[Rfam]
RNA: Lysine riboswitch aptamer
Organism: Rheinheimera mesophila
RNA sequence: UAGACCAGAAGAGGAGCGUUAACCAGGUAGAACAUCUCAGGCUGCUACAAGCCGCAGGAUGUUUGAGGGGGAUUAACGCCGAGGAUCAGAGGCUGUAGCGGCCACUGGUUCGGUUGUUAAGGCUGAAUCCUUACGACUGUCACCUGUUUUUUGUGGUGGAGAGCUUCUGGCCUU
Numbered sequence: 001u002a003g004a005c006c007a008g009a010a011g012a013g014g015a016g017c018g019u020u021a022a023c024c025a026g027g028u029a030g031a032a033c034a035u036c037u038c039a040g041g042c043u044g045c046u047a048c049a050a051g052c053c054g055c056a057g058g059a060u061g062u063u064u065g066a067g068g069g070g071g072a073u074u075a076a077c078g079c080c081g082a083g084g085a086u087c088a089g090a091g092g093c094u095g096u097a098g099c100g101g102c103c104a105c106u107g108g109u110u111c112g113g114u115u116g117u118u119a120a121g122g123c124u125g126a127a128u129c130c131u132u133a134c135g136a137c138u139g140u141c142a143c144c145u146g147u148u149u150u151u152u153g154u155g156g157u158g159g160a161g162a163g164c165u166u167c168u169g170g171c172c173u174u
Stems, first nucleotide, its partner, number of pairs: 006169006016079007024071001030064008083111007091103004112138006119132004140159005